[Rfam]
RNA: FMN riboswitch aptamer (RFN element)
RNA sequence: UUGCGCACUCCGGGGUCGGUGAAAUUCCGAGCCGGCGGUUACAGUCCGCGACCCGGUCGCCUCCAGCGGCCGGUUGACCAGGUGGAACUCCUGGACCGACGGUCAAAGUCCGGAAGGGAGGCAGUGCGCGG
Number, nucleotide and partner (000 for none) at each position: 001u000002u000003g129004c128005g127006c126007a125008c124009u123010c120011c000012g000013g000014g000015g000016u000017c029018g028019g027020u000021g000022a000023a000024a000025u000026u000027c019028c018029g017030a000031g109032c108033c098034g097035g049036c048037g047038g046039u000040u000041a000042c000043a000044g096045u095046c038047c037048g036049c035050g000051a000052c000053c073054c072055g000056g000057u000058c000059g000060c000061c000062u000063c000064c000065a000066g000067c000068g000069g000070c000071c000072g054073g053074u000075u000076g000077a000078c094079c093080a092081g091082g090083u000084g000085g000086a000087a000088c000089u000090c082091c081092u080093g079094g078095a045096c044097c034098g033099a000100c112101g111102g110103u000104c000105a000106a000107a000108g032109u031110c102111c101112g100113g000114a000115a000116g000117g000118g000119a000120g010121g000122c000123a009124g008125u007126g006127c005128g004129c003130g000131g000